RNA sequence: UUACAGGACGUUUUAGCUAUUAAACUGUUUUGUCCCUCUCUGUGGAAGAAUAAUUUGUUCUUUGACAGAGAGGGACAAAACAGUUCAACAGCUAAAACGUUCUGUAAC
Numbered sequence: 001u002u003a004c005a006g007g008a009c010g011u012u013u014u015a016g017c018u019a020u021u022a023a024a025c026u027g028u029u030u031u032g033u034c035c036c037u038c039u040c041u042g043u044g045g046a047a048g049a050a051u052a053a054u055u056u057g058u059u060c061u062u063u064g065a066c067a068g069a070g071a072g073g074g075a076c077a078a079a080a081c082a083g084u085u086c087a088a089c090a091g092c093u094a095a096a097a098c099g100u101u102c103u104g105u106a107a108c
Stems, first nucleotide, its partner, number of pairs: 001107006011097008020088002023085006029069006049059004
Background
A member of the RNA family "mir-8517 microRNA precursor family" from Plutella xylostella, 108 nucleotides long. The match comes from Rfam's covariance-model search (99 bits). The base pairs follow the family's consensus structure, which was predicted with RNAalifold.